[Rfam]
This 87-nucleotide RNA from Triticum urartu belongs to the Rfam family "MIR1120/MIR1122 microRNA precursor family".
On this family, see Yao et al., Genome Biol 2007: "Cloning and characterization of microRNAs from wheat (Triticum aestivum L.)".
RNA sequence: CUACUCCCUCCGCCUCAUAAUAUAAGAACGUUUUUUAUACUAGUGUAGUGUCAAAAAUAUUCUUAUAUUAUGGGACGGAGGGAGUAC
Numbered sequence: 001c002u003a004c005u006c007c008c009u010c011c012g013c014c015u016c017a018u019a020a021u022a023u024a025a026g027a028a029c030g031u032u033u034u035u036u037a038u039a040c041u042a043g044u045g046u047a048g049u050g051u052c053a054a055a056a057a058u059a060u061u062c063u064u065a066u067a068u069u070a071u072g073g074g075a076c077g078g079a080g081g082g083a084g085u086a087c
Stems, first nucleotide, its partner, number of pairs: 003085003007081005014074004019069010030058006037051005
Source information:
Its family is annotated with miRNA-mediated post-transcriptional gene silencing and RISC complex in the Gene Ontology. A search with the family's covariance model found it, with a score of 87 bits.